[Rfam]
RNA sequence: GGUUGCGUAGCUCAGGGGUAGAGCACCUGCUUUACAACAAACACCAGAACGCAGAUGGUCGCAGGUUCGAACCCUGCCGUGAUCA
Numbered sequence: 001g002g003u004u005g006c007g008u009a010g011c012u013c014a015g016g017g018g019u020a021g022a023g024c025a026c027c028u029g030c031u032u033u034a035c036a037a038c039a040a041a042c043a044c045c046a047g048a049a050c051g052c053a054g055a056u057g058g059u060c061g062c063a064g065g066u067u068c069g070a071a072c073c074c075u076g077c078c079g080u081g082a083u084c085a
Base pairs, nucleotide, nucleotide: 001084002083003082004081005080006079007078010024011023012022013021027054028053029052030051061077062076063075064074065073